MIR159 microRNA precursor family: a 200-nucleotide RNA sequence from Cucumis sativus. Lineage of the source: Eukaryota > rosids > Cucurbitaceae > Benincaseae > Cucumis.
[Rfam]
RNA sequence: UGGAAGGUGAGGGAGCUCCCUUCAGUCCAAGACGUGACAGCCAUGGCUGAACUUGGCUCCUGCAUCGUUGGUUCAGAAACACAUCAUUGUUCAAGCUAAUAUAUCAGUUGAUCAGUUAUUGAGCCAACGAGUCAGCAGCUAAGUAACAACCGAGAAAACUGCCUUGGACUGGACUGAAGAGAGCUCCCUUGUUUCUCAAA
Numbered sequence: 001u002g003g004a005a006g007g008u009g010a011g012g013g014a015g016c017u018c019c020c021u022u023c024a025g026u027c028c029a030a031g032a033c034g035u036g037a038c039a040g041c042c043a044u045g046g047c048u049g050a051a052c053u054u055g056g057c058u059c060c061u062g063c064a065u066c067g068u069u070g071g072u073u074c075a076g077a078a079a080c081a082c083a084u085c086a087u088u089g090u091u092c093a094a095g096c097u098a099a100u101a102u103a104u105c106a107g108u109u110g111a112u113c114a115g116u117u118a119u120u121g122a123g124c125c126a127a128c129g130a131g132u133c134a135g136c137a138g139c140u141a142a143g144u145a146a147c148a149a150c151c152g153a154g155a156a157a158a159c160u161g162c163c164u165u166g167g168a169c170u171g172g173a174c175u176g177a178a179g180a181g182a183g184c185u186c187c188c189u190u191g192u193u194u195c196u197c198a199a200a
Stems, first nucleotide, its partner, number of pairs: 013186006020179001023176007036163001057138002060135003066129004074121001
Dot-bracket structure: ............((((((.(..(((((((......(....................((.(((...((((....(..............................................)....))))...))).))........................)......)))))))..).))))))..............
Gene Ontology terms of the family: RISC complex and miRNA-mediated post-transcriptional gene silencing.